[Rfam]
RNA sequence: CUGUCCCCUUGAGUUCCCUUGACCACUUCAUUGGGGCUAUAUACUCUACUACUCCCACUGAAGUGUUUGGGGGAACUCUGGGUGCCAU
Numbered sequence: 001c002u003g004u005c006c007c008c009u010u011g012a013g014u015u016c017c018c019u020u021g022a023c024c025a026c027u028u029c030a031u032u033g034g035g036g037c038u039a040u041a042u043a044c045u046c047u048a049c050u051a052c053u054c055c056c057a058c059u060g061a062a063g064u065g066u067u068u069g070g071g072g073g074a075a076c077u078c079u080g081g082g083u084g085c086c087a088u
Stems, first nucleotide, its partner, number of pairs: 005084001007082003011078010022068001024065007032057004
The record is an 88-nucleotide RNA sequence from Manihot esculenta, which matches "mir-395 microRNA precursor family" in Rfam. Rfam describes the family as follows. mir-395 was identified in both Arabidopsis thaliana and Oryza sativa computationally and was later experimentally verified. mir-395 is thought to target mRNAs coding for ATP sulphurylases. The mature sequence is excised from the 3' arm of the hairpin. The source organism's lineage runs through Eukaryota, Viridiplantae, Magnoliopsida, Crotonoideae and Manihot. The literature on the family includes a 2004 paper in Mol Cell by Jones-Rhoades and Bartel, "Computational Identification of Plant MicroRNAs and Their Targets, Including a Stress-Induced miRNA".